[Rfam]
RNA sequence: UGUUUGUGUAAUCUCAGCUGGUAAUUCUGAGUUCUAAUAAAUACUAAUUUUCUCAAGUUACUUGCCGAGAUUAUAUAAAUA
Numbered sequence: 001u002g003u004u005u006g007u008g009u010a011a012u013c014u015c016a017g018c019u020g021g022u023a024a025u026u027c028u029g030a031g032u033u034c035u036a037a038u039a040a041a042u043a044c045u046a047a048u049u050u051u052c053u054c055a056a057g058u059u060a061c062u063u064g065c066c067g068a069g070a071u072u073a074u075a076u077a078a079a080u081a
Base pairs, nucleotide, nucleotide: 003079004078005077006076007075009073010072011071012070013069014068015067017065020063021062023059024058026057028055029054030053031052

Rfam assigns this 81-nucleotide sequence from Lottia gigantea to the family "mir-216 microRNA precursor family". The sequence is in the family's curated seed alignment. The source organism's lineage runs through Eukaryota, Lophotrochozoa, Mollusca, Gastropoda and Lottia.